Shown here is a 98-nucleotide RNA sequence from Danionella cerebrum, a member of the family "mir-210 microRNA precursor family". The source organism's lineage runs through Eukaryota, Eumetazoa, Craniata, Otophysi and Danionella. The family's consensus secondary structure was predicted with WAR. Rfam 15.1 lists 790 matches to the family in 722 species.
RNA sequence: UCUGAAAGUUGGUAAGCCACUGACUAACGCACAUUGCGCAUGCUCUCCACUCCACUGUGCGUGUGACAGCGGCUAACCAGCUCUUGGGUUUGAGUCCC
Numbered sequence: 001u002c003u004g005a006a007a008g009u010u011g012g013u014a015a016g017c018c019a020c021u022g023a024c025u026a027a028c029g030c031a032c033a034u035u036g037c038g039c040a041u042g043c044u045c046u047c048c049a050c051u052c053c054a055c056u057g058u059g060c061g062u063g064u065g066a067c068a069g070c071g072g073c074u075a076a077c078c079a080g081c082u083c084u085u086g087g088g089u090u091u092g093a094g095u096c097c098c
Stems, first nucleotide, its partner, number of pairs: 005084001007082006015074004020069003024065001025063002028061006035054002